A member of the RNA family "Small nucleolar RNA R21" from Carpinus fangiana, 77 nucleotides long. NCBI's taxonomy places the organism under Eukaryota, Viridiplantae, Streptophyta, Mesangiospermae, Carpinus. A search with the family's covariance model found it, with a score of 72 bits. Rfam 15.1 lists 472 matches to the family in 146 species. Pairs were carried over by alignment from the consensus structure, which was predicted with PFOLD. By type it is a C/D-box small nucleolar RNA.
RNA sequence: CAUCCCAAUGAAGAAUGAUAUACAAAUUAAAAGUAGUGGACAGAAUUCUCUUGAUGAGUAAUAGAUUCUGAGGGAUG
Numbered sequence: 001c002a003u004c005c006c007a008a009u010g011a012a013g014a015a016u017g018a019u020a021u022a023c024a025a026a027u028u029a030a031a032a033g034u035a036g037u038g039g040a041c042a043g044a045a046u047u048c049u050c051u052u053g054a055u056g057a058g059u060a061a062u063a064g065a066u067u068c069u070g071a072g073g074g075a076u077g
Stems, first nucleotide, its partner, number of pairs: 001077006